[Rfam]
RNA sequence: UCGGGAGGACGACCUCCCCCCAAGCAUGGGAUUCAAGGUCCGGGACGGCCCGG
Numbered sequence: 001u002c003g004g005g006a007g008g009a010c011g012a013c014c015u016c017c018c019c020c021c022a023a024g025c026a027u028g029g030g031a032u033u034c035a036a037g038g039u040c041c042g043g044g045a046c047g048g049c050c051c052g053g
Stems, first nucleotide, its partner, number of pairs: 001022001003020002005016004040053005
Rfam assigns this 53-nucleotide RNA sequence from Massilia sp. Leaf139 to the family "Guanidine-II riboswitch aptamer (mini-ykkC)". It scores 36 bits against the family's covariance model. The base pairs follow the family's consensus structure, which is taken from published work. Rfam links the family to the GO term regulation of gene expression.